[Rfam]
RNA sequence: UUUAGAAAGAUUUUAUGCUUUUUUUUCAUAUUCAAAUUGCCAAGUGAUUAUAUUAUAUAGUAUGAUGAAUACCAAGGUUCCAAAGUCCAAAACAUGAGUAAGCAGCCUUUUUCCGCAGAAAAAUGAGCGGAUUACAAAUGUCUUGCAAAAUUGCGGAAGUGCGAAGCACGGAGCAUUCGGUAUCUUAA
Numbered sequence: 001u002u003u004a005g006a007a008a009g010a011u012u013u014u015a016u017g018c019u020u021u022u023u024u025u026u027c028a029u030a031u032u033c034a035a036a037u038u039g040c041c042a043a044g045u046g047a048u049u050a051u052a053u054u055a056u057a058u059a060g061u062a063u064g065a066u067g068a069a070u071a072c073c074a075a076g077g078u079u080c081c082a083a084a085g086u087c088c089a090a091a092a093c094a095u096g097a098g099u100a101a102g103c104a105g106c107c108u109u110u111u112u113c114c115g116c117a118g119a120a121a122a123a124u125g126a127g128c129g130g131a132u133u134a135c136a137a138a139u140g141u142c143u144u145g146c147a148a149a150a151u152u153g154c155g156g157a158a159g160u161g162c163g164a165a166g167c168a169c170g171g172a173g174c175a176u177u178c179g180g181u182a183u184c185u186u187a188a
Stems, first nucleotide, its partner, number of pairs: 001188002004185003010086004017078005023071001025069005088145003092141004098135004105128002107125001109123003150177001152175003159169004

A member of the RNA family "Clostridiales-1 RNA" from Clostridium sp. CAG:43, 188 nucleotides long. It scores 56 bits against the family's covariance model. By type it is a small RNA. The base pairs follow the family's consensus structure, which is taken from published work.